[Rfam]
RNA: Plastid-rps18 3UTR RNA
RNA sequence: GGCAGGUAUUUUACAAUUAAGAAGCAAUUGCUUCUUGUAUAGAUUAUAUAUUAAUAU
Numbered sequence: 001g002g003c004a005g006g007u008a009u010u011u012u013a014c015a016a017u018u019a020a021g022a023a024g025c026a027a028u029u030g031c032u033u034c035u036u037g038u039a040u041a042g043a044u045u046a047u048a049u050a051u052u053a054a055u056a057u
Stems, first nucleotide, its partner, number of pairs: 018037008